Shown here is a 62-nucleotide RNA sequence from Fischerella thermalis, a member of the family "Nitrogen stress-induced RNA 1". Pairs were carried over by alignment from the consensus structure. It is annotated as a small RNA. Rfam 15.1 lists 962 matches to the family in 163 species. It is one of the family's seed sequences.
RNA sequence: UGGUAGAUGCACCCUGAUAACUUGCUCCCCUAGUUAACUGUCGGUUGCUAGGGGAUUUUUUU
Numbered sequence: 001u002g003g004u005a006g007a008u009g010c011a012c013c014c015u016g017a018u019a020a021c022u023u024g025c026u027c028c029c030c031u032a033g034u035u036a037a038c039u040g041u042c043g044g045u046u047g048c049u050a051g052g053g054g055a056u057u058u059u060u061u062u
Base pairs, nucleotide, nucleotide: 002013003012004011027054028053029052030051031050032049033048034047036045